This 107-nucleotide RNA sequence from Cloacibacillus evryensis belongs to the Rfam family "TPP riboswitch aptamer (THI element)". It scores 65 bits against the family's covariance model.
[Rfam]
RNA sequence: GCGUGAUUUAUGGGGAGCCUGGAUAUUUCGGCUGAGAGGAGGCGCGGCCUCGACCCGAUGAACCUGAUGUGGGUAAUGCCACCGUAGGGAGAAUAGCUCGAAUUCAG
Numbered sequence: 001g002c003g004u005g006a007u008u009u010a011u012g013g014g015g016a017g018c019c020u021g022g023a024u025a026u027u028u029c030g031g032c033u034g035a036g037a038g039g040a041g042g043c044g045c046g047g048c049c050u051c052g053a054c055c056c057g058a059u060g061a062a063c064c065u066g067a068u069g070u071g072g073g074u075a076a077u078g079c080c081a082c083c084g085u086a087g088g089g090a091g092a093a094u095a096g097c098u099c100g101a102a103u104u105c106a107g
Base pairs, nucleotide, nucleotide: 008093009092011057012056013055014054017032018031019030021028039051040050041049042048043047063088064087065086066085069082070081071080072079
Gene Ontology term of the family: thiamine pyrophosphate binding.